[Rfam]
RNA sequence: UAGUAGAUGCAUUCUGAUGUCCUCCCCCUAGUUGAUAUAACCUAGGGGGCUUUUUCG
Numbered sequence: 001u002a003g004u005a006g007a008u009g010c011a012u013u014c015u016g017a018u019g020u021c022c023u024c025c026c027c028c029u030a031g032u033u034g035a036u037a038u039a040a041c042c043u044a045g046g047g048g049g050c051u052u053u054u055u056c057g
Stems, first nucleotide, its partner, number of pairs: 002013003024049008034041001
A member of the RNA family "Nitrogen stress-induced RNA 1" from Lusitaniella coriacea, 57 nucleotides long. The family's RNA type in Rfam is small RNA. The pairing is the family consensus, mapped onto this sequence. The literature on the family includes a 2010 paper in J Mol Biol by Ionescu et al., "Heterocyst-specific transcription of NsiR1, a non-coding RNA encoded in a tandem array of direct repeats in cyanobacteria".